Overview: Shown here is a 102-nucleotide RNA from Bacillus sp. MUM 116, a member of the family "TPP riboswitch aptamer (THI element)". The match comes from Rfam's covariance-model search (80 bits). The organism belongs to Bacillus, within Bacteria. Rfam describes the family as follows. Vitamin B(1) in its active form thiamin pyrophosphate (TPP) is an essential coenzyme that is synthesised by coupling of pyrimidine and thiazole moieties in bacteria.
[Rfam]
RNA sequence: UCUUUCCACUAGGGGUGCCUUGUGCUGAGAGGGAUGUUCGCAUCUCGACCCUUAGAACCUGAUCUAGUUCAUACUAGCGUAGGGAAGUGGUUUGUUAUGAUA
Numbered sequence: 001u002c003u004u005u006c007c008a009c010u011a012g013g014g015g016u017g018c019c020u021u022g023u024g025c026u027g028a029g030a031g032g033g034a035u036g037u038u039c040g041c042a043u044c045u046c047g048a049c050c051c052u053u054a055g056a057a058c059c060u061g062a063u064c065u066a067g068u069u070c071a072u073a074c075u076a077g078c079g080u081a082g083g084g085a086a087g088u089g090g091u092u093u094g095u096u097a098u099g100a101u102a
Base pairs, nucleotide, nucleotide: 006090007089008088009087010086011052012051013050014049017025018024032045033044034043035042036041058083059082060081061080064077065076066075067074